Shown here is a 120-nucleotide sequence from Ancylostoma ceylanicum, a member of the family "U5 spliceosomal RNA". Pairs were carried over by alignment from the consensus structure, which is taken from published work. U5 RNA is a component of both types of known spliceosome. The precise function of this molecule is unknown, though it is known that the 5' loop is required for splice site selection and p220 binding, and that both the 3' stem-loop and the Sm site are important for Sm protein binding and cap methylation.
RNA sequence: AUACUUAGAGCCUUUGCCAUUAACCGAGAAAAUCUUUCGCCUUUUACUAAAGAUUUCCGUGCAAAGGUGCGUUUUGUUGUAUCGACAGUCAUCACAGUGACUUACGAACAGAACGUGUGU
Numbered sequence: 001a002u003a004c005u006u007a008g009a010g011c012c013u014u015u016g017c018c019a020u021u022a023a024c025c026g027a028g029a030a031a032a033u034c035u036u037u038c039g040c041c042u043u044u045u046a047c048u049a050a051a052g053a054u055u056u057c058c059g060u061g062c063a064a065a066g067g068u069g070c071g072u073u074u075u076g077u078u079g080u081a082u083c084g085a086c087a088g089u090c091a092u093c094a095c096a097g098u099g100a101c102u103u104a105c106g107a108a109c110a111g112a113a114c115g116u117g118u119g120u
Stems, first nucleotide, its partner, number of pairs: 002081003008070001010068008030056008099120001101119001103117004